DUF3800-VII RNA: an 84-nucleotide sequence from Futiania mangrovi.
The base pairs follow the family's consensus structure, which is taken from published work.
NCBI's taxonomy places the organism under Bacteria, Pseudomonadota, Alphaproteobacteria, Futianiaceae, Futiania.
By type it is a small RNA.
RNA sequence: GGUGGUCAUGCGCCGGAAUCAGCCAGAGCGUUCGAAAGUUCGCAGGCACGUUCGUGCAAUCAUGGCCCGGGGGGCCACCUGCCU
Numbered sequence: 001g002g003u004g005g006u007c008a009u010g011c012g013c014c015g016g017a018a019u020c021a022g023c024c025a026g027a028g029c030g031u032u033c034g035a036a037a038g039u040u041c042g043c044a045g046g047c048a049c050g051u052u053c054g055u056g057c058a059a060u061c062a063u064g065g066c067c068c069g070g071g072g073g074g075c076c077a078c079c080u081g082c083c084u
Stems, first nucleotide, its partner, number of pairs: 001079007011071001013070004022066004028043003033038001046057004